A member of the RNA family "FMN riboswitch aptamer (RFN element)" from Paraburkholderia steynii, 171 nucleotides long.
Nucleotides: 171
Stems, first nucleotide, its partner, number of pairs: 003169008017029003031151002033140002035080004083116002120136005142154003
Number, partner (000 for none) and nucleotide at each position: 001000g002000u003169a004168c005167g006166u007165c008164u009163u010162c011000a012000g013000g014000g015000c016000g017029g018028g019027g020000c021000g022000a023000a024000a025000u026000u027019c028018c029017c030000c031151a032150c033140c034139g035080g036079c037078g038077g039000u040000a041000u042000g043000c044000a045000g046000g047000c048000g049000g050000c051000g052000c053000u054000u055000u056000a057000c058000g059000a060000a061000g062000c063000g064000c065000a066000a067000g068000u069000c070000u071000g072000c073000g074000a075000g076000c077038c078037c079036g080035c081000g082000a083116g084115c085000g086000c087000c088000u089000g090000c091000g092000u093000u094000g095000u096000a097000g098000u099000u100000u101000g102000a103000g104000u105000u106000g107000c108000a109000g110000g111000g112000u113000c114000a115084g116083c117000a118000g119000a120136u121135c122134u123133g124132g125000u126000g127000a128000g129000a130000g131000g132124c133123c134122a135121g136120a137000g138000c139034c140033g141000a142154c143153g144152g145000u146000u147000a148000g149000a150032g151031u152144c153143c154142g155000g156000a157000u158000g159000g160000a161000a162010g163009a164008a165007g166006a167005u168004g169003u170000g171000c
Rfam describes the family as follows. The RFN element is a highly conserved domain that is found frequently in the 5'-untranslated regions of prokaryotic mRNAs that encode for flavin mononucleotide (FMN) biosynthesis and transport proteins. Its family is annotated with FMN binding in the Gene Ontology.